Source information:
The family of this 114-nucleotide sequence from Aedes aegypti is "drz-agam-1 ribozyme". Gene Ontology term of the family: catalytic activity. A search with the family's covariance model found it, with a score of 52 bits. Pairs were carried over by alignment from the consensus structure, which is taken from published work. The source organism's lineage runs through Eukaryota, Eumetazoa, Ecdysozoa, Culicidae and Stegomyia.

RNA sequence: UGCCCAGCAACUCCUAUCCCUACCUCCUCGCGGUACUGGGGAUACGAGUAACCUUAGGGAAGAUCGGGUAACCAACCCCCGGUGGGAACUUUGGUCGUAUGCUGACAGGGAAGG
Numbered sequence: 001u002g003c004c005c006a007g008c009a010a011c012u013c014c015u016a017u018c019c020c021u022a023c024c025u026c027c028u029c030g031c032g033g034u035a036c037u038g039g040g041g042a043u044a045c046g047a048g049u050a051a052c053c054u055u056a057g058g059g060a061a062g063a064u065c066g067g068g069u070a071a072c073c074a075a076c077c078c079c080c081g082g083u084g085g086g087a088a089c090u091u092u093g094g095u096c097g098u099a100u101g102c103u104g105a106c107a108g109g110g111a112a113g114g
Base pairs, nucleotide, nucleotide: 013114014113015112017110018109019108022034023033024032042100043099044098045097046096047095049093050092